[Rfam]
RNA sequence: GUCUUACCGUGAGUUCCUUGCAAGCACUUCAUGAGCAUUCUUUCAAAUGCCAUUGUGAAGUGUUUGGGGGAACUCUCGAUGAUGC
Numbered sequence: 001g002u003c004u005u006a007c008c009g010u011g012a013g014u015u016c017c018u019u020g021c022a023a024g025c026a027c028u029u030c031a032u033g034a035g036c037a038u039u040c041u042u043u044c045a046a047a048u049g050c051c052a053u054u055g056u057g058a059a060g061u062g063u064u065u066g067g068g069g070g071a072a073c074u075c076u077c078g079a080u081g082a083u084g085c
Stems, first nucleotide, its partner, number of pairs: 005081002008078002011075009022065013